The record is a 77-nucleotide RNA sequence from Rubrobacter tropicus, which matches "c-di-GMP-I-GGC riboswitch aptamer" in Rfam. Rfam 15.1 lists 1,298 matches to the family in 717 species. Clan: c-di-GMP_I riboswitch clan. The organism belongs to Rubrobacter, within Bacteria. On this family, see Weinberg et al., Proc Natl Acad Sci U S A 2017: "Bioinformatic analysis of riboswitch structures uncovers variant classes with altered ligand specificity". Gene Ontology term of the family: cyclic-di-GMP binding. Pairs were carried over by alignment from the consensus structure, which is taken from published work.
RNA sequence: UCACGAAAAGGCAAACCCGUCGCGAGGCGGAGGACGCAAAGCCACGGACCUCUCAGGAGGUGGCCGGGCUACCGAAG
Numbered sequence: 001u002c003a004c005g006a007a008a009a010g011g012c013a014a015a016c017c018c019g020u021c022g023c024g025a026g027g028c029g030g031a032g033g034a035c036g037c038a039a040a041g042c043c044a045c046g047g048a049c050c051u052c053u054c055a056g057g058a059g060g061u062g063g064c065c066g067g068g069c070u071a072c073c074g075a076a077g
Base pairs, nucleotide, nucleotide: 001077011037012036016032017030018029019028020027021026035063040070041069042068043067045066046065047064048061049060050059